[Rfam]
RNA sequence: ACAAAGGCUCUUUUAAGAGCCACCCAGGUUUUCUGUUAAAGAGCA
Numbered sequence: 001a002c003a004a005a006g007g008c009u010c011u012u013u014u015a016a017g018a019g020c021c022a023c024c025c026a027g028g029u030u031u032u033c034u035g036u037u038a039a040a041g042a043g044c045a
Base pairs, nucleotide, nucleotide: 006021007020008019009018010017011016